[Rfam]
RNA sequence: ACAUGCAAUGAUGAAAACACAGUCUGGCUGGUAGUCCAGACACAGUCAUUAAACUGUUAGUAACCUGCCUUCCUUGGUUGUCCCUUCUUUGCGAAUUAACA
Numbered sequence: 001a002c003a004u005g006c007a008a009u010g011a012u013g014a015a016a017a018c019a020c021a022g023u024c025u026g027g028c029u030g031g032u033a034g035u036c037c038a039g040a041c042a043c044a045g046u047c048a049u050u051a052a053a054c055u056g057u058u059a060g061u062a063a064c065c066u067g068c069c070u071u072c073c074u075u076g077g078u079u080g081u082c083c084c085u086u087c088u089u090u091g092c093g094a095a096u097u098a099a100c101a
Base pairs, nucleotide, nucleotide: 004093005092006091007090008089010087011086022041023040024039025038026037027036042057043056044055045054046053067078068077069076
The family of this 101-nucleotide sequence from endosymbiont 'TC1' of Trimyema compressum is "azaaromatic riboswitch aptamer (yjdF RNA)".
The family's consensus secondary structure is taken from published work.